Ribosomal protein L20 leader: a 128-nucleotide RNA sequence from Streptococcus pasteurianus.
The organism belongs to Streptococcus pasteurianus, within Bacteria.
About the family: This family is a putative r-protein leader autoregulatory structure found in B. subtilis and other low-GC Gram-positive bacteria. It is located in the 5' untranslated regions of mRNAs encoding initiation factor 3 followed by ribosomal proteins L35 and L20 (infC-rpmI-rplT).
RNA sequence: UGAGAAAAGCAGAAGUGAGAACUUCUCGCCUUGCGACUAAGGUUGUCUGGCCCAACAUGUCAAAGAUUCUUUCGGGAAUACUAUGUAUGUACGGGCUUGAUUUGUCAAGUCCGUUUUUGUUUUUCUCU
Dot-bracket structure: ..........((((((....)))))).(((..(((((....)))))..))).......................................(((((((((......)))))))))..............